[Rfam]
Shown here is a 174-nucleotide RNA from Clostridium aciditolerans, a member of the family "Group II catalytic intron D1-D4-3".
Rfam's curators write: Group II introns are found in rRNA, tRNA and mRNA of organelles in fungi, plants and protists, and also in mRNA in bacteria.
Taxonomically the source falls in Clostridium (Bacteria, Bacillati, Bacillota, Clostridia).
It scores 137 bits against the family's covariance model.
The base pairs follow the family's consensus structure.

RNA sequence: UCCUCCGUGAGGAGGAAUCUGAAGGAAGUCCUAAGUAAAGUCUCGGUCUGAGGAACACGAGCCACAUAUAAGGCUUACAUAGAAAGGACGAGUUUGCCUAGCAAAACCAAGUCCAACACUAUACGAAUUUCUAUGGAGUAAAUGUGGUAGAUAUAUGAGAUGAAGGUUGUCGUU
Numbered sequence: 001u002c003c004u005c006c007g008u009g010a011g012g013a014g015g016a017a018u019c020u021g022a023a024g025g026a027a028g029u030c031c032u033a034a035g036u037a038a039a040g041u042c043u044c045g046g047u048c049u050g051a052g053g054a055a056c057a058c059g060a061g062c063c064a065c066a067u068a069u070a071a072g073g074c075u076u077a078c079a080u081a082g083a084a085a086g087g088a089c090g091a092g093u094u095u096g097c098c099u100a101g102c103a104a105a106a107c108c109a110a111g112u113c114c115a116a117c118a119c120u121a122u123a124c125g126a127a128u129u130u131c132u133a134u135g136g137a138g139u140a141a142a143u144g145u146g147g148u149a150g151a152u153a154u155a156u157g158a159g160a161u162g163a164a165g166g167u168u169g170u171c172g173u174u
Base pairs, nucleotide, nucleotide: 001016002015003014004013005012006011028174030172035167036166040161041160042159043158044157045156046152047151048150049149050148062147063146064145065144066143067142073139074138075137078135079134080133081132082131083130084129086114087113088112089111092107093106094105095104